This 79-nucleotide RNA sequence from Triticum urartu belongs to the Rfam family "Plastid-rpl20 3UTR RNA".
About the family: Plastid rpl20 is a non-coding RNA (ncRNA) recognised in plastids. It was found in the three prime untranslated region (3UTR) of rpl20 gene, it presence in the 3UTR region sugest a role in transcript maduration.

RNA sequence: UUAGUAUUCCCGGAGUUCCCUCUCCAGGAAGAUACAAAAUUAAGAUUAAGUGGUAGGAAUCAAUGAGCUGGAUUACUUU
Numbered sequence: 001u002u003a004g005u006a007u008u009c010c011c012g013g014a015g016u017u018c019c020c021u022c023u024c025c026a027g028g029a030a031g032a033u034a035c036a037a038a039a040u041u042a043a044g045a046u047u048a049a050g051u052g053g054u055a056g057g058a059a060u061c062a063a064u065g066a067g068c069u070g071g072a073u074u075a076c077u078u079u
Stems, first nucleotide, its partner, number of pairs: 007030004012025004062074003